[Rfam]
RNA sequence: UGCACUUUGUCUUGUAAGUUGCUCUGGAUAAGAGCGUCUUCUAAAUGCCAAAAA
Numbered sequence: 001u002g003c004a005c006u007u008u009g010u011c012u013u014g015u016a017a018g019u020u021g022c023u024c025u026g027g028a029u030a031a032g033a034g035c036g037u038c039u040u041c042u043a044a045a046u047g048c049c050a051a052a053a054a
Base pairs, nucleotide, nucleotide: 013043014041016039020036021035022034023033024032025031

Rfam assigns this 54-nucleotide RNA from Albula glossodonta to the family "UnaL2 LINE 3' element". The eel long interspersed element (LINE) UnaL2 and its partner short interspersed element (SINE) share a conserved 3' tail containing a stem-loop that is critical for their retrotransposition. A search with the family's covariance model found it, with a score of 55 bits. The source organism's lineage runs through Eukaryota, Eumetazoa, Albuliformes, Albulidae and Albula.